[Rfam]
RNA sequence: AGGGAGAAUCUGUAAAGCUCAGGAGGGAUAGCGCCAUAGGAACAAAAUGGUUUAAUUUAUAUUAGGCAUUUGUUUAGGCGCUAUCCAUCCUGAGUUUCAUGGCUUCUUCUU
Numbered sequence: 001a002g003g004g005a006g007a008a009u010c011u012g013u014a015a016a017g018c019u020c021a022g023g024a025g026g027g028a029u030a031g032c033g034c035c036a037u038a039g040g041a042a043c044a045a046a047a048u049g050g051u052u053u054a055a056u057u058u059a060u061a062u063u064a065g066g067c068a069u070u071u072g073u074u075u076a077g078g079c080g081c082u083a084u085c086c087a088u089c090c091u092g093a094g095u096u097u098c099a100u101g102g103c104u105u106c107u108u109c110u111u
Stems, first nucleotide, its partner, number of pairs: 010102001016096009026086010

A member of the RNA family "MIR390 microRNA precursor family" from Prunus armeniaca, 111 nucleotides long. Its family is annotated with miRNA-mediated post-transcriptional gene silencing and RISC complex in the Gene Ontology. A search with the family's covariance model found it, with a score of 105 bits. A reference for the family is Gustafson et al. (2005), "ASRP: the Arabidopsis Small RNA Project Database", Nucleic Acids Res.